[Rfam]
RNA sequence: ACAAUCCGCUAGAGGUGCCUUUUUAAAGGGCUGAGAUUGAAGUGAUACUUCGGGACUCUAUGAACCUGAUCUGGGUUAUACCAGCGUAGGGAAGUGGAAACAUGGAUAU
Dot-bracket structure: .....(((((((((.((((((.....)))))......(((((.....))))))..)))).....((((..((((......))))..))))..)))))............
The record is a 109-nucleotide RNA, which matches "TPP riboswitch aptamer (THI element)" in Rfam. It scores 88 bits against the family's covariance model. The family's consensus secondary structure is taken from published work.